[Rfam]
RNA sequence: GACGAGAGACACGGGAGCCCGGGGUACGUCGGGCUGAGAGUGCGGGUCGAGCCCCCGCUGACCGUUGGACCUGAUCCGGGUAAUGCCGGCGAAGGAAGGAUGUCAUCGGUGAAU
Numbered sequence: 001g002a003c004g005a006g007a008g009a010c011a012c013g014g015g016a017g018c019c020c021g022g023g024g025u026a027c028g029u030c031g032g033g034c035u036g037a038g039a040g041u042g043c044g045g046g047u048c049g050a051g052c053c054c055c056c057g058c059u060g061a062c063c064g065u066u067g068g069a070c071c072u073g074a075u076c077c078g079g080g081u082a083a084u085g086c087c088g089g090c091g092a093a094g095g096a097a098g099g100a101u102g103u104c105a106u107c108g109g110u111g112a113a114u
Base pairs, nucleotide, nucleotide: 006103008101010099011065012064013063014062016059017034018033019032020031021030042058043057044056045055070095071094072093076089077088078087079086
This 114-nucleotide RNA from Gordonia rhizosphera belongs to the Rfam family "TPP riboswitch aptamer (THI element)".
Pairs were carried over by alignment from the consensus structure, which is taken from published work.
A search with the family's covariance model found it, with a score of 59 bits.
Gene Ontology term of the family: thiamine pyrophosphate binding.
The organism belongs to Gordonia rhizosphera, within Bacteria.